RNA sequence: AAACCCUACGGCUUUCAGGUCCGCCGCAACUCCUGAUUCCGUAGGGUGGCUGGCCCGGAUGCGGUCUAAGAGUGGCCUCUUCGACACCCGCGCCGGGUCAGCCUUCCC
Numbered sequence: 001a002a003a004c005c006c007u008a009c010g011g012c013u014u015u016c017a018g019g020u021c022c023g024c025c026g027c028a029a030c031u032c033c034u035g036a037u038u039c040c041g042u043a044g045g046g047u048g049g050c051u052g053g054c055c056c057g058g059a060u061g062c063g064g065u066c067u068a069a070g071a072g073u074g075g076c077c078u079c080u081u082c083g084a085c086a087c088c089c090g091c092g093c094c095g096g097g098u099c100a101g102c103c104u105u106c107c108c
Stems, first nucleotide, its partner, number of pairs: 003047008015036005048103011

The family of this 108-nucleotide sequence from Pelagibacterium lentulum is "EcpR1". The match comes from Rfam's covariance-model search (75 bits). Its family is annotated with negative regulation of cell cycle, regulation of translation in response to stress and mRNA binding in the Gene Ontology. From the family's description: Perviously named SmelC291, SmrC10, or Sra33. According to its overproduction phenotype it was renamed Elongated Cell Phenotype RNA1. Induced by stress,EcpR1 negatively regulates cell cycle master regulatory genes dnaA and gcrA at post-transcriptional level by base pairing between its strongly conserved GC-rich loop and the target mRNAs. It's regulation is hfq-independent but requires RNase E to regulate dnaA. A reference for the family is Wilms et al. (2012), "Deep sequencing uncovers numerous small RNAs on all four replicons of the plant pathogen Agrobacterium tumefaciens", RNA Biol.